[Rfam]
RNA sequence: AAACCAUAUGACAGCCAGCCGAAGACAGCAGGUGUUCCUUUAUGAGGAACAUAAUGAUUUAUCGCCUGCCGAGGAAAAGUUUGAUUAGACUUUUUUACCUCUCGAUGUCUUCGAGAGGUUUUUUUUCGGCGGU
Numbered sequence: 001a002a003a004c005c006a007u008a009u010g011a012c013a014g015c016c017a018g019c020c021g022a023a024g025a026c027a028g029c030a031g032g033u034g035u036u037c038c039u040u041u042a043u044g045a046g047g048a049a050c051a052u053a054a055u056g057a058u059u060u061a062u063c064g065c066c067u068g069c070c071g072a073g074g075a076a077a078a079g080u081u082u083g084a085u086u087a088g089a090c091u092u093u094u095u096u097a098c099c100u101c102u103c104g105a106u107g108u109c110u111u112c113g114a115g116a117g118g119u120u121u122u123u124u125u126u127c128g129g130c131g132g133u
Stems, first nucleotide, its partner, number of pairs: 028069006034050007098118008
Dot-bracket structure: ...........................(((((((((((((...))))))).............))))))............................((((((((.....))))))))...............